Source information:
Rfam assigns this 344-nucleotide sequence from Oribacterium sp. oral taxon 078 to the family "Bacterial RNase P class A". NCBI's taxonomy places the organism under Bacteria, Bacillati, Clostridia, Lachnospiraceae, Oribacterium sp. oral taxon 078.
[Rfam]
RNA sequence: UGAGUACCGCGGGUGGUCGCUGCCGGAGAGGCGAGAGCUUCCGGGAGAGGAAAGUCCGGGCUUCACAGAGCAGGAUGCCUGAUAACGUCAGGUUGAGGCGACUCACAGGACAGUGCAGCAGAAAAUUACCGCCGGAAAUCCGGUAAGGGUGAAAAGGCAGUGUAAGAGACUACCGGUCGUCUGGCAACAGGCGGCGCCGUGUAAACCCCAUCCGAAGCAAGACCAAACAGAGAGCACAGGGCUGCUCGUCCGCUCUCGGGUAGGUUGCUUGAGGCUCAUGGCGACAUGAGUCCUAGAUAGAUGACCAUCCACGACAUAACCCGGCUUACAGCGGUACUCAUCCC
Numbered sequence: 001u002g003a004g005u006a007c008c009g010c011g012g013g014u015g016g017u018c019g020c021u022g023c024c025g026g027a028g029a030g031g032c033g034a035g036a037g038c039u040u041c042c043g044g045g046a047g048a049g050g051a052a053a054g055u056c057c058g059g060g061c062u063u064c065a066c067a068g069a070g071c072a073g074g075a076u077g078c079c080u081g082a083u084a085a086c087g088u089c090a091g092g093u094u095g096a097g098g099c100g101a102c103u104c105a106c107a108g109g110a111c112a113g114u115g116c117a118g119c120a121g122a123a124a125a126u127u128a129c130c131g132c133c134g135g136a137a138a139u140c141c142g143g144u145a146a147g148g149g150u151g152a153a154a155a156g157g158c159a160g161u162g163u164a165a166g167a168g169a170c171u172a173c174c175g176g177u178c179g180u181c182u183g184g185c186a187a188c189a190g191g192c193g194g195c196g197c198c199g200u201g202u203a204a205a206c207c208c209c210a211u212c213c214g215a216a217g218c219a220a221g222a223c224c225a226a227a228c229a230g231a232g233a234g235c236a237c238a239g240g241g242c243u244g245c246u247c248g249u250c251c252g253c254u255c256u257c258g259g260g261u262a263g264g265u266u267g268c269u270u271g272a273g274g275c276u277c278a279u280g281g282c283g284a285c286a287u288g289a290g291u292c293c294u295a296g297a298u299a300g301a302u303g304a305c306c307a308u309c310c311a312c313g314a315c316a317u318a319a320c321c322c323g324g325c326u327u328a329c330a331g332c333g334g335u336a337c338u339c340a341u342c343c344c
Base pairs, nucleotide, nucleotide: 001340002339003338004337005336006335007334008333009332010331011329012309013308014307015306016305017304018303020047021046023044024043025042026041027040028039052327053326054325056324057323058322059321060320061217062216063215064214068247069246070245071244073213074212075211076210077209078092079091080090081089082088093107094105095104096103097102108208109207113206114205115202116201117200129148130147131144132143133142134141135140156174157173159171160170161169175197176195177194178193179192180191181190182189183188221266222265223264224263230257231256232255233254234253235252239251240250241249242248273292274291275290276289277288278287279286280285

About this RNA: The family's RNA type in Rfam is ribozyme. The match comes from Rfam's covariance-model search (310 bits). The base pairs follow the family's consensus structure, which is taken from published work.